[Rfam]
RNA: 7SK RNA
Organism: Cervus elaphus
RNA sequence: GGAUGUGAGGGCGAUCUGGUUGCGACAUCUGUCACCCCAUUGAUCGCCAGGGUUGAUUCGGCUGAUCUGGCUGGCUAGGCGGGUGUCCCCUUCCUCCCUCACCGCUCCAUGUGCGUCCCUCCCGAAGCUGUGCGCUCGGUCGAAGAGGACGACCAUCCCCGAUAGAGGAGGACCGGUCUUCGGCCAAGGGUAUAUGAGUAGCUGCGCUCCCCUGCUAGAACCUCCAAACAAGCUCUCAAGAAUGCAGUUCAGUGAUUAUUAUUAUUACUUUUUUAGUAUAUAUAGAGUGCUCAAUUAUUAUUAUUUUUUUUUAAUUUUUGGCUGUGCUGUGUUUUUGUUUAUU
Numbered sequence: 001g002g003a004u005g006u007g008a009g010g011g012c013g014a015u016c017u018g019g020u021u022g023c024g025a026c027a028u029c030u031g032u033c034a035c036c037c038c039a040u041u042g043a044u045c046g047c048c049a050g051g052g053u054u055g056a057u058u059c060g061g062c063u064g065a066u067c068u069g070g071c072u073g074g075c076u077a078g079g080c081g082g083g084u085g086u087c088c089c090c091u092u093c094c095u096c097c098c099u100c101a102c103c104g105c106u107c108c109a110u111g112u113g114c115g116u117c118c119c120u121c122c123c124g125a126a127g128c129u130g131u132g133c134g135c136u137c138g139g140u141c142g143a144a145g146a147g148g149a150c151g152a153c154c155a156u157c158c159c160c161g162a163u164a165g166a167g168g169a170g171g172a173c174c175g176g177u178c179u180u181c182g183g184c185c186a187a188g189g190g191u192a193u194a195u196g197a198g199u200a201g202c203u204g205c206g207c208u209c210c211c212c213u214g215c216u217a218g219a220a221c222c223u224c225c226a227a228a229c230a231a232g233c234u235c236u237c238a239a240g241a242a243u244g245c246a247g248u249u250c251a252g253u254g255a256u257u258a259u260u261a262u263u264a265u266u267a268c269u270u271u272u273u274u275a276g277u278a279u280a281u282a283u284a285g286a287g288u289g290c291u292c293a294a295u296u297a298u299u300a301u302u303a304u305u306u307u308u309u310u311u312u313a314a315u316u317u318u319u320g321g322c323u324g325u326g327c328u329g330u331g332u333u334u335u336u337g338u339u340u341a342u343u
Base pairs, nucleotide, nucleotide: 001108002107003106005102006101007100008099009098010097011096013093014092018090019089024087025086026085027084028083029082030081031080032079033078035074036073037070038069039068042067043066044065045064046062047061048060116171117170118168119167120166121165122139123138124137125136127135128134140162141161142160147158148157149156201296203294208289210287212285213284214283223278225276228274230272231271232270